[Rfam]
This 317-nucleotide sequence from Aquarana catesbeiana belongs to the Rfam family "Nuclear RNase P". Pairs were carried over by alignment from the consensus structure, which is taken from published work. A reference for the family is Xiao et al. (2002), "Eukaryotic Ribonuclease P: A Plurality of Ribonucleoprotein Enzymes", Annu Rev Biochem.
RNA sequence: GUGGAGAGAAGUUCAGUGCUGAGGCUGCUGGCAGAAUGCUUAGGUCACUCCUCACAAUGUACUCAGGGAAGGUCUGAGAUUGAAGCUAAUGGCUGCUUUCACAAAGCAUUGCUUGACCCAAGCAAGUGAGUUCCCAUCAACAUUGGUAAGCUUGUUCCUUCAAAGCAGAAGAUGUAGCUCUCUCUCAGAAUGUGGAAUUGCUACAGAUGUGAUGUCAUCAAGCUUGGAAGAGACUCGCAGCUGGUUGCUGUAAGUCCAAUAACUGAAGGGAAGCUCCCAGGUGCUUCCUAACUCAAUUCAGACUACUCUCUCUCCAC
Numbered sequence: 001g002u003g004g005a006g007a008g009a010a011g012u013u014c015a016g017u018g019c020u021g022a023g024g025c026u027g028c029u030g031g032c033a034g035a036a037u038g039c040u041u042a043g044g045u046c047a048c049u050c051c052u053c054a055c056a057a058u059g060u061a062c063u064c065a066g067g068g069a070a071g072g073u074c075u076g077a078g079a080u081u082g083a084a085g086c087u088a089a090u091g092g093c094u095g096c097u098u099u100c101a102c103a104a105a106g107c108a109u110u111g112c113u114u115g116a117c118c119c120a121a122g123c124a125a126g127u128g129a130g131u132u133c134c135c136a137u138c139a140a141c142a143u144u145g146g147u148a149a150g151c152u153u154g155u156u157c158c159u160u161c162a163a164a165g166c167a168g169a170a171g172a173u174g175u176a177g178c179u180c181u182c183u184c185u186c187a188g189a190a191u192g193u194g195g196a197a198u199u200g201c202u203a204c205a206g207a208u209g210u211g212a213u214g215u216c217a218u219c220a221a222g223c224u225u226g227g228a229a230g231a232g233a234c235u236c237g238c239a240g241c242u243g244g245u246u247g248c249u250g251u252a253a254g255u256c257c258a259a260u261a262a263c264u265g266a267a268g269g270g271a272a273g274c275u276c277c278c279a280g281g282u283g284c285u286u287c288c289u290a291a292c293u294c295a296a297u298u299c300a301g302a303c304u305a306c307u308c309u310c311u312c313u314c315c316a317c
Stems, first nucleotide, its partner, number of pairs: 001317004007311003012267006020065004034050002037047002039044001074301005084242004094108005109125006126238007146223002268289007